A member of the RNA family "Small nucleolar RNA SNORA11" from Aotus nancymaae, 130 nucleotides long.
Rfam classes the family as an H/ACA-box small nucleolar RNA.
U107 (SNORA11) is a member of the H/ACA class of snoRNAs that guide the sites of modification of uridines to pseudouridines. This snoRNA was identified by RT-PCR from blood cells and its expression confirmed by Northern blot analysis. There is no predicted target for this guide snRNA.
Its family is annotated with RNA processing and nucleolus in the Gene Ontology.
The match comes from Rfam's covariance-model search (104 bits).
[Rfam]
RNA sequence: AGGGUGGGCUCAGAGCAGGAGGCCUGAGGAAUGGCUCCUCUGUUGACAACAUACCCAACAAGAAUCUGGGAUCAUUGCGACCAGAGGUACCAAAACCUGUGACCUUCCUAUGAACAAAUGCCCUACAUGU
Number, nucleotide and partner (000 for none) at each position: 001a000002g056003g055004g054005u053006g052007g000008g050009c000010u000011c000012a000013g000014a044015g043016c042017a041018g040019g039020a000021g037022g035023c034024c033025u000026g000027a000028g000029g000030a000031a000032u000033g024034g023035c022036u000037c021038c000039u019040c018041u017042g016043u015044u014045g000046a000047c000048a000049a000050c008051a000052u006053a005054c004055c003056c002057a000058a000059c000060a000061a000062g000063a000064a000065u000066c000067u000068g000069g123070g122071a000072u120073c000074a000075u000076u116077g115078c000079g000080a000081c112082c000083a000084g105085a000086g103087g000088u101089a100090c099091c000092a098093a000094a000095a000096c000097c000098u092099g090100u089101g088102a000103c086104c000105u084106u000107c000108c000109u000110a000111u000112g081113a000114a000115c077116a076117a000118a000119u000120g072121c000122c070123c069124u000125a000126c000127a000128u000129g000130u000